The family of this 75-nucleotide RNA from Erythrobacter sp. THAF29 is "Makes More Granules Regulator RNA (mmgR)".
From the family's description: SuhB later renamed mmgR (makes more granules regulator) was a putative non-coding RNA found multiple times in the Agrobacterium tumefaciens genome and related alpha-proteobacteria.
Gene Ontology terms of the family: response to nitrogen compound, protein binding and DNA-templated transcription, termination.
[Rfam]
RNA sequence: CGAUCCUGCCUUUCAGGCAUCCUCUCCCAAACUUUUUAAGCCCGGCCUCGUGCCGGGCUUUUUUCUUUGUCGGCA
Numbered sequence: 001c002g003a004u005c006c007u008g009c010c011u012u013u014c015a016g017g018c019a020u021c022c023u024c025u026c027c028c029a030a031a032c033u034u035u036u037u038a039a040g041c042c043c044g045g046c047c048u049c050g051u052g053c054c055g056g057g058c059u060u061u062u063u064u065c066u067u068u069g070u071c072g073g074c075a
Base pairs, nucleotide, nucleotide: 008018009017010016011015038060039059040058041057042056043055044054045053046052
Dot-bracket structure: .......((((...))))...................(((((((((.....)))))))))...............